Archaeal RNase P: a 301-nucleotide sequence from Methanobacterium formicicum. Rfam's curators put it in the seed alignment. Gene Ontology terms of the family: multimeric ribonuclease P complex, tRNA processing and ribonuclease P activity. A reference for the family is Frank and Pace (1998), "Ribonuclease P: unity and diversity in a tRNA processing ribozyme", Annu Rev Biochem. Ribonuclease P (RNase P) is a ubiquitous endoribonuclease, found in archaea, bacteria and eukarya as well as chloroplasts and mitochondria. Its best characterised activity is the generation of mature 5'-ends of tRNAs by cleaving the 5'-leader elements of precursor-tRNAs. Cellular RNase Ps are ribonucleoproteins. RNA from bacterial RNase Ps retains its catalytic activity in the absence of the protein subunit, i.e. it is a ribozyme. Isolated eukaryotic and archaeal RNase P RNA has not been shown to retain its catalytic function, but is still essential for the catalytic activity of the holoenzyme. Although the archaeal and eukaryotic holoenzymes have a much greater protein content than the bacterial ones, the RNA cores from all the three lineages are homologous -- helices corresponding to P1, P2, P3, P4, and P10/11 are common to all cellular RNase P RNAs. Yet, there is considerable sequence variation, particularly among the eukaryotic RNAs. The source organism's lineage runs through Archaea, Methanobacteriati, Methanobacteria, Methanobacteriales and Methanobacterium.
RNA sequence: AGCCGAAGGGCAGCUACCGGUUUCUAUAGAUUUAAUGUCUGUAGUUAAACUGAGGAAACUCCACCCAUCGUACAGAACCGUGAUGUCCUAAGACAUCUGCUGAGAAGCAGGACUCUGGAGCAGAAACGACACGUCUUCUGGUGGAUGAACAUGAAGAUCCGUCUGAUUGACACCAGGAGGAACGGUGAAACGGCCAAUCCACGGGAUGCAAGGGUAAACACUGCCAGUGAAUCCUGUAUGAGGCAGAGGUAACUCGCAUAGAUGAAUGCUGCCACCAACAGAAGGUGGGUUACUCUCGGCA
Numbered sequence: 001a002g003c004c005g006a007a008g009g010g011c012a013g014c015u016a017c018c019g020g021u022u023u024c025u026a027u028a029g030a031u032u033u034a035a036u037g038u039c040u041g042u043a044g045u046u047a048a049a050c051u052g053a054g055g056a057a058a059c060u061c062c063a064c065c066c067a068u069c070g071u072a073c074a075g076a077a078c079c080g081u082g083a084u085g086u087c088c089u090a091a092g093a094c095a096u097c098u099g100c101u102g103a104g105a106a107g108c109a110g111g112a113c114u115c116u117g118g119a120g121c122a123g124a125a126a127c128g129a130c131a132c133g134u135c136u137u138c139u140g141g142u143g144g145a146u147g148a149a150c151a152u153g154a155a156g157a158u159c160c161g162u163c164u165g166a167u168u169g170a171c172a173c174c175a176g177g178a179g180g181a182a183c184g185g186u187g188a189a190a191c192g193g194c195c196a197a198u199c200c201a202c203g204g205g206a207u208g209c210a211a212g213g214g215u216a217a218a219c220a221c222u223g224c225c226a227g228u229g230a231a232u233c234c235u236g237u238a239u240g241a242g243g244c245a246g247a248g249g250u251a252a253c254u255c256g257c258a259u260a261g262a263u264g265a266a267u268g269c270u271g272c273c274a275c276c277a278a279c280a281g282a283a284g285g286u287g288g289g290u291u292a293c294u295c296u297c298g299g300c301a
Base pairs, nucleotide, nucleotide: 002300003299004298005297006296007294008293009273010272011271012270013269014268018052019051020050021049022048057291058290059289061288062287063286064285065284066208067207068206069205071238072237073236074235075234078204079203080202081201082200083096084095085094086093087092097110098109099108100107101106111199112198116196117195118194132184133183134182135179136178137177138176139175140174141173142172153163154162212255213254214253215252221246222245223244224243225242